[Rfam]
RNA sequence: UGGAGGUCUGAGAAGGUUACACAGCUUGUUGUGCUGUUGUUACCGGUUUUUACCUCCAAAAUUAACACACAGACACACAAUGUCGUCAUUCUAAUAAAGUUAAAAUUGAUGUGUGUGUUUG
Numbered sequence: 001u002g003g004a005g006g007u008c009u010g011a012g013a014a015g016g017u018u019a020c021a022c023a024g025c026u027u028g029u030u031g032u033g034c035u036g037u038u039g040u041u042a043c044c045g046g047u048u049u050u051u052a053c054c055u056c057c058a059a060a061a062u063u064a065a066c067a068c069a070c071a072g073a074c075a076c077a078c079a080a081u082g083u084c085g086u087c088a089u090u091c092u093a094a095u096a097a098a099g100u101u102a103a104a105a106u107u108g109a110u111g112u113g114u115g116u117g118u119u120u121g
Stems, first nucleotide, its partner, number of pairs: 002057005015044003021037005076115003080112002083109003092102004

Small nucleolar RNA SNORA47: a 121-nucleotide sequence from Oryzias melastigma.
NCBI's taxonomy places the organism under Eukaryota, Ctenosquamata, Acanthomorphata, Adrianichthyoidei, Oryzias.
The base pairs follow the family's consensus structure, which was predicted with WAR.
Rfam links the family to the GO terms RNA processing and nucleolus.
A search with the family's covariance model found it, with a score of 48 bits.